RNA: Plastid-clpP 5UTR RNA
Organism: Striga asiatica
RNA sequence: AAUUCUGUUUGUAGGAACAAGGAGAAGCAAAUAUAUUCUAUACUCGAUAAUUACCAAUAGGCAAUCGGGG
Numbered sequence: 001a002a003u004u005c006u007g008u009u010u011g012u013a014g015g016a017a018c019a020a021g022g023a024g025a026a027g028c029a030a031a032u033a034u035a036u037u038c039u040a041u042a043c044u045c046g047a048u049a050a051u052u053a054c055c056a057a058u059a060g061g062c063a064a065u066c067g068g069g070g
Base pairs, nucleotide, nucleotide: 003022004021006019007018008017009016010015043069044068045067051060052059053058